RNA sequence: AGAGGCCCCAAGUUCAAGGCCACAGCAGAAGCAUUCGUGGCGUGGCCUGUCAGGUUCCAAUAAAAUCUGCAGAUUCUGCU
Dot-bracket structure: .................[[[[..(((((((((.........))]]]]...((((((.......))))))....)))))))
Numbered sequence: 001a002g003a004g005g006c007c008c009c010a011a012g013u014u015c016a017a018g019g020c021c022a023c024a025g026c027a028g029a030a031g032c033a034u035u036c037g038u039g040g041c042g043u044g045g046c047c048u049g050u051c052a053g054g055u056u057c058c059a060a061u062a063a064a065a066u067c068u069g070c071a072g073a074u075u076c077u078g079c080u
Stems, first nucleotide, its partner, number of pairs: 018047004024080007031043002051069006